[Rfam]
RNA: Small nucleolar RNA Z43
Nucleotides: 094
Stems, first nucleotide, its partner, number of pairs: 001094003004090001036053001038048001
Number, partner (000 for none) and nucleotide at each position: 001094g002093c003092g004090c005000a006000a007000u008000g009000a010000u011000g012000g013000u014000u015000u016000g017000u018000c019000u020000c021000g022000u023000u024000c025000g026000g027000u028000g029000u030000a031000u032000u033000g034000g035000c036053g037000a038048u039000a040000a041000c042000c043000a044000a045000c046000a047000a048038a049000g050000c051000c052000a053036u054000g055000c056000c057000g058000a059000c060000a061000a062000u063000c064000c065000u066000u067000a068000c069000a070000u071000a072000u073000c074000a075000c076000c077000a078000c079000u080000c081000a082000c083000a084000a085000u086000c087000u088000g089000a090004g091000u092003c093002g094001c